This 92-nucleotide sequence from Rhodococcus sp. RD6.2 belongs to the Rfam family "SAM riboswitch aptamer (S box leader)".
The match comes from Rfam's covariance-model search (55 bits).
Its family is annotated with regulation of gene expression in the Gene Ontology.
Taxonomically the source falls in Rhodococcus (Bacteria, Actinomycetota, Actinomycetes, Mycobacteriales).
RNA sequence: UGACCAUCGAGAGCGACCGAGAGACCCGGCUCAGCGACGUCGCAGCAACCCCCGCCAGUGGGUGUGGGUGCUACCGCCGGGAGCGAUGGUCG
Number, nucleotide and partner (000 for none) at each position: 001u092002g091003a090004c089005c088006a087007u086008c085009g000010a000011g000012a000013g043014c042015g041016a040017c039018c000019g000020a000021g032022a031023g030024a000025c000026c080027c079028g078029g077030c023031u022032c021033a000034g000035c000036g000037a000038c000039g017040u016041c015042g014043c013044a072045g071046c070047a069048a000049c068050c067051c064052c000053c062054g000055c000056c000057a000058g000059u000060g000061g000062g053063u000064g051065u000066g000067g050068g049069u047070g046071c045072u044073a000074c000075c000076g084077c029078c028079g027080g026081g000082a000083g000084c076085g008086a007087u006088g005089g004090u003091c002092g001